[Rfam]
RNA: mir-219 microRNA precursor family
Organism: Astyanax mexicanus
RNA sequence: UUCGGAGCUGAUUGUCCAAACGCAAUUCUUGUAGCUGUUGGAUAUCAGGAGUUGUGGAUGGACAUCAUGCUCCUGA
Number, nucleotide and partner (000 for none) at each position: 001u000002u075003c000004g073005g072006a071007g070008c000009u067010g066011a065012u064013u000014g063015u062016c061017c060018a059019a000020a000021c056022g055023c054024a053025a052026u051027u050028c049029u048030u047031g046032u000033a000034g000035c000036u000037g000038u000039u000040g000041g000042a000043u000044a000045u000046c031047a030048g029049g028050a027051g026052u025053u024054g023055u022056g021057g000058a000059u018060g017061g016062a015063c014064a012065u011066c010067a009068u000069g000070c007071u006072c005073c004074u000075g002076a000